[Rfam]
RNA sequence: CAAAUAAUCUGUUAGGUGAGGCUCCUAUAUGGAAAUACGCUGCUGCCCAAAAACAUCGAGAGAUGCCAAUGGGUCAACUGGAAUUGUCGAGAAAGGCUCUUCUUAAUGUAGCUGACAGUAAUGUCUAAGCCAUAUAGUGCUAAAACUCGACGUUGAGAUUACUUU
Numbered sequence: 001c002a003a004a005u006a007a008u009c010u011g012u013u014a015g016g017u018g019a020g021g022c023u024c025c026u027a028u029a030u031g032g033a034a035a036u037a038c039g040c041u042g043c044u045g046c047c048c049a050a051a052a053a054c055a056u057c058g059a060g061a062g063a064u065g066c067c068a069a070u071g072g073g074u075c076a077a078c079u080g081g082a083a084u085u086g087u088c089g090a091g092a093a094a095g096g097c098u099c100u101u102c103u104u105a106a107u108g109u110a111g112c113u114g115a116c117a118g119u120a121a122u123g124u125c126u127a128a129g130c131c132a133u134a135u136a137g138u139g140c141u142a143a144a145a146c147u148c149g150a151c152g153u154u155g156a157g158a159u160u161a162c163u164u165u
Stems, first nucleotide, its partner, number of pairs: 005161006011151002013094001015147003020141003025137008039112005045074005054065004080103004086097003114125003

This 165-nucleotide RNA from Vagococcus allomyrinae belongs to the Rfam family "M-box riboswitch aptamer (ykoK leader)". NCBI's taxonomy places the organism under Bacteria, Bacillati, Bacilli, Lactobacillales, Vagococcus. M-box riboswitch, also know as ykoK leader is described as a metaloregulatory RNA that sense divalent metals and function as a genetic control element of genes related to divalent metal transport in bacteria. It scores 150 bits against the family's covariance model.